[Rfam]
RNA sequence: CCCCCAUGAGGAAACCCCCACGCGUCCGACCCCCCCGCGCUGCGCCAGCGCCUGCAAAGGCCGAACCCACUGGUGACAACGGGGGAACAGGGGGACGCCUCGUCCUGAGGGGACGGUCUGAGGGGG
Numbered sequence: 001c002c003c004c005c006a007u008g009a010g011g012a013a014a015c016c017c018c019c020a021c022g023c024g025u026c027c028g029a030c031c032c033c034c035c036c037g038c039g040c041u042g043c044g045c046c047a048g049c050g051c052c053u054g055c056a057a058a059g060g061c062c063g064a065a066c067c068c069a070c071u072g073g074u075g076a077c078a079a080c081g082g083g084g085g086a087a088c089a090g091g092g093g094g095a096c097g098c099c100u101c102g103u104c105c106u107g108a109g110g111g112g113a114c115g116g117u118c119u120g121a122g123g124g125g126g
Base pairs, nucleotide, nucleotide: 001125002124003123004122